[Rfam]
RNA sequence: AAGCGAGGACGACCUCCCCCAUCCGGGAUUUAUGUUCGGGACGGCCCGA
Numbered sequence: 001a002a003g004c005g006a007g008g009a010c011g012a013c014c015u016c017c018c019c020c021a022u023c024c025g026g027g028a029u030u031u032a033u034g035u036u037c038g039g040g041a042c043g044g045c046c047c048g049a
Stems, first nucleotide, its partner, number of pairs: 003018001005016004036049005